[Rfam]
RNA sequence: GUUGAAGCUCCAUCCAUAAAUGGAUAAGACUUUUGUCCUAGUGUAUACUAAUUGUUGAAGGAGAAAUACCAAACAUCUUGUUUUACCGAGAUGUUUGGUAUUUCCCCUUU
Numbered sequence: 001g002u003u004g005a006a007g008c009u010c011c012a013u014c015c016a017u018a019a020a021u022g023g024a025u026a027a028g029a030c031u032u033u034u035g036u037c038c039u040a041g042u043g044u045a046u047a048c049u050a051a052u053u054g055u056u057g058a059a060g061g062a063g064a065a066a067u068a069c070c071a072a073a074c075a076u077c078u079u080g081u082u083u084u085a086c087c088g089a090g091a092u093g094u095u096u097g098g099u100a101u102u103u104c105c106c107c108u109u110u
Base pairs, nucleotide, nucleotide: 009024010023011022012021013020059108060107061106063104064103065102066101067100068099069098071096072095073094075092076091077090078089079088
The family of this 110-nucleotide sequence from Aletris spicata is "Plastid-psbA-1 3UTR RNA". The family is grouped with related families in Rfam's "Plastid-psbA 3UTR RNA clan". Lineage of the source: Eukaryota > Streptophytina > Dioscoreales > Nartheciaceae > Aletris. It is annotated as a cis-regulatory element. On this family, see Richter et al., Plant Commun 2023: "Retrograde signaling in plants: A critical review focusing on the GUN pathway and beyond". It is one of the family's seed sequences.